A member of the RNA family "MIR396 microRNA precursor family" from Helianthus annuus, 109 nucleotides long. The family has 26 seed sequences and 744 matches in Rfam 15.1. Rfam links the family to the GO terms miRNA-mediated post-transcriptional gene silencing and RISC complex. Lineage of the source: Eukaryota > Viridiplantae > Gunneridae > campanulids > Helianthus. A reference for the family is Sunkar et al. (2005), "Cloning and characterization of microRNAs from rice", Plant Cell.
RNA sequence: CUUUCUAUUCUUCCACGGCUUUCUUGAACUGCAUGGGUUUUGAUCUAUCAGAUCUGUGUUUUAUCAUAUUGUCUUUGCGGUUCAAUAAAGCUGUGGGAAGAUAGAGACA
Number, nucleotide and partner (000 for none) at each position: 001c000002u000003u106004u105005c104006u103007a102008u000009u000010c000011u000012u000013c096014c095015a094016c000017g092018g091019c090020u089021u088022u087023c000024u085025u084026g083027a082028a000029c080030u079031g078032c077033a076034u000035g000036g000037g000038u000039u000040u000041u000042g000043a000044u000045c000046u000047a000048u000049c000050a000051g000052a000053u000054c000055u000056g000057u000058g000059u000060u000061u000062u000063a000064u000065c000066a000067u000068a000069u000070u000071g000072u000073c000074u000075u000076u033077g032078c031079g030080g029081u000082u027083c026084a025085a024086u000087a022088a021089a020090g019091c018092u017093g000094u015095g014096g013097g000098a000099a000100g000101a000102u007103a006104g005105a004106g003107a000108c000109a000